[Rfam]
RNA sequence: CUAGCACUUUCACAGGUCCUUCCCCAGGCAGUGGGGCCAGGAUUUGGUAGCUGGUGCUAAGAGAAAAUCCUUGGUUACAUCCUUGCCCUGAUAGUGUGCCAGUGGCAGCUGUCAAUCAAUGAGACAAAC
Numbered sequence: 001c002u003a004g005c006a007c008u009u010u011c012a013c014a015g016g017u018c019c020u021u022c023c024c025c026a027g028g029c030a031g032u033g034g035g036g037c038c039a040g041g042a043u044u045u046g047g048u049a050g051c052u053g054g055u056g057c058u059a060a061g062a063g064a065a066a067a068u069c070c071u072u073g074g075u076u077a078c079a080u081c082c083u084u085g086c087c088c089u090g091a092u093a094g095u096g097u098g099c100c101a102g103u104g105g106c107a108g109c110u111g112u113c114a115a116u117c118a119a120u121g122a123g124a125c126a127a128a129c
Stems, first nucleotide, its partner, number of pairs: 003058006013046003017042004022036004068123001070121001071119004076114001079112002083108005088102003
Dot-bracket structure: ..((((((....(((.((((.((((.......))))..)))).)))......)))))).........(.(((((.(..((..((((((((.........))).)))))..)).).)))).).)......
Small nucleolar RNA SNORA30/SNORA37 family: a 129-nucleotide sequence from Galemys pyrenaicus. It scores 124 bits against the family's covariance model. For this family Rfam cites "RNomics: an experimental approach that identifies 201 candidates for novel, small, non-messenger RNAs in mouse" (Huttenhofer et al., EMBO J, 2001). Rfam's curators write: The members of this family belong to the H/ACA class of snoRNAs that guide the sites of modification of uridines to pseudouridines. This family includes human ACA30 (SNORA30), ACA37 (SNORA37) and the mouse homolog MBI-26. Lineage of the source: Eukaryota > Tetrapoda > Amniota > Talpidae > Galemys. Rfam 15.1 lists 407 matches to the family in 132 species. The family's RNA type in Rfam is H/ACA-box small nucleolar RNA.